[Rfam]
RNA: Lysine riboswitch aptamer
Organism: Shewanella sp. P1-14-1
RNA sequence: UACAUAAGUAGAGGCGCAUCAAAUAUCAGUAUGGUUAAGUUGGUUGAUACCAAUAACUUAAUUUGAAAGGAUUUGGUGCCGAAGUGAAUCGGUACGAUCAAUACCAUUUGCUGGGGCAGUUUCCGAAAGGGGCUGCACUGUCAUAGUAAUUUUUAUCCGUGAGGAUAAAACAAUGGAUAUCGAUGUUGAUAUCGAUAUUACUGUGGAGUGCUACUGAAAAG
Numbered sequence: 001u002a003c004a005u006a007a008g009u010a011g012a013g014g015c016g017c018a019u020c021a022a023a024u025a026u027c028a029g030u031a032u033g034g035u036u037a038a039g040u041u042g043g044u045u046g047a048u049a050c051c052a053a054u055a056a057c058u059u060a061a062u063u064u065g066a067a068a069g070g071a072u073u074u075g076g077u078g079c080c081g082a083a084g085u086g087a088a089u090c091g092g093u094a095c096g097a098u099c100a101a102u103a104c105c106a107u108u109u110g111c112u113g114g115g116g117c118a119g120u121u122u123c124c125g126a127a128a129g130g131g132g133c134u135g136c137a138c139u140g141u142c143a144u145a146g147u148a149a150u151u152u153u154u155a156u157c158c159g160u161g162a163g164g165a166u167a168a169a170a171c172a173a174u175g176g177a178u179a180u181c182g183a184u185g186u187u188g189a190u191a192u193c194g195a196u197a198u199u200a201c202u203g204u205g206g207a208g209u210g211c212u213a214c215u216g217a218a219a220a221g
Base pairs, nucleotide, nucleotide: 007215008214009213010212011211016079017078018077019076020075021074022073023072024071033063034062035061036060037059038058039057083112084111085110086109087108088107089106091105092104093103094102113139114138116136117135118134119133120132121131122130123129141206142205143204144203145202146201147200148199149198150197